[Rfam]
RNA sequence: AUUAUGGGGUCGGCGAUCUCCCCACGAGGCGACAGCCGAAGCAUCGCGUCCCGACUUCUUCCGAAGGACGCGCCAUG
Numbered sequence: 001a002u003u004a005u006g007g008g009g010u011c012g013g014c015g016a017u018c019u020c021c022c023c024a025c026g027a028g029g030c031g032a033c034a035g036c037c038g039a040a041g042c043a044u045c046g047c048g049u050c051c052c053g054a055c056u057u058c059u060u061c062c063g064a065a066g067g068a069c070g071c072g073c074c075a076u077g
Stems, first nucleotide, its partner, number of pairs: 005024005046071006